[Rfam]
RNA sequence: CGGGUCGAGAGGCGCUGCAACGGACCACGUGUCCGCCACGCUCGACCCGCACUCCGGUCGAGCAAGGGCGCCUCCACUCG
Numbered sequence: 001c002g003g004g005u006c007g008a009g010a011g012g013c014g015c016u017g018c019a020a021c022g023g024a025c026c027a028c029g030u031g032u033c034c035g036c037c038a039c040g041c042u043c044g045a046c047c048c049g050c051a052c053u054c055c056g057g058u059c060g061a062g063c064a065a066g067g068g069c070g071c072c073u074c075c076a077c078u079c080g
Base pairs, nucleotide, nucleotide: 002048003047004046005045006044007043008042021035022034023033024032025031
Rfam assigns this 80-nucleotide RNA from Umezawaea tangerina to the family "SAH (S-adenosyl-L-homocysteine) riboswitch aptamer". Pairs were carried over by alignment from the consensus structure, which is taken from published work. Rfam links the family to the GO terms S-adenosylhomocysteine metabolic process and regulation of gene expression. The match comes from Rfam's covariance-model search (38 bits).